[Rfam]
This 167-nucleotide RNA from Lihuaxuella thermophila belongs to the Rfam family "M-box riboswitch aptamer (ykoK leader)".
RNA sequence: UACUAUCUCUGUUAGGUGAGGUUCCUGUUCGGAGAGACGCUACUGCCCAAAAAUGUCGAGAGACGCCAAUGGGUCAGCAGGAAAGAUCGGAAGGAAGGUCUUUUCUAAUGUAGCUGGUCGGUCGACCUAUGCCGUUCAGUGCCAAAGCUCAAUCGAGGGGGAUAGUU
Numbered sequence: 001u002a003c004u005a006u007c008u009c010u011g012u013u014a015g016g017u018g019a020g021g022u023u024c025c026u027g028u029u030c031g032g033a034g035a036g037a038c039g040c041u042a043c044u045g046c047c048c049a050a051a052a053a054u055g056u057c058g059a060g061a062g063a064c065g066c067c068a069a070u071g072g073g074u075c076a077g078c079a080g081g082a083a084a085g086a087u088c089g090g091a092a093g094g095a096a097g098g099u100c101u102u103u104u105c106u107a108a109u110g111u112a113g114c115u116g117g118u119c120g121g122u123c124g125a126c127c128u129a130u131g132c133c134g135u136u137c138a139g140u141g142c143c144a145a146a147g148c149u150c151a152a153u154c155g156a157g158g159g160g161g162a163u164a165g166u167u
Base pairs, nucleotide, nucleotide: 005163006162007161008160009159010158011154013096015149016148017147020143021142022141025139026138027137030134031133032132039114040113041112042111043110045074046073047072048071049070054065055064056063057062080105081104082103083102086099087098088097116127117126118125
Overview
It scores 132 bits against the family's covariance model. The literature on the family includes a 2004 paper in Proc Natl Acad Sci U S A by Barrick et al., "New RNA motifs suggest an expanded scope for riboswitches in bacterial genetic control".